[Rfam]
RNA sequence: GUUUGCCUGUGUGUGGAUGGUGUUCAGCACUAAGGCAAGGUGUGCUUACCUGUGUGGGCGGUUUCCAGCCACAGGGACAGGUGUGUUUACUU
Numbered sequence: 001g002u003u004u005g006c007c008u009g010u011g012u013g014u015g016g017a018u019g020g021u022g023u024u025c026a027g028c029a030c031u032a033a034g035g036c037a038a039g040g041u042g043u044g045c046u047u048a049c050c051u052g053u054g055u056g057g058g059c060g061g062u063u064u065c066c067a068g069c070c071a072c073a074g075g076g077a078c079a080g081g082u083g084u085g086u087u088u089a090c091u092u
Stems, first nucleotide, its partner, number of pairs: 004083007018073002022069003027064001029062003034053001038051005
Background: A member of the RNA family "mir-2060 microRNA precursor family" from Branchiostoma lanceolatum, 92 nucleotides long. The match comes from Rfam's covariance-model search (61 bits). Rfam links the family to the GO terms RISC complex and miRNA-mediated post-transcriptional gene silencing.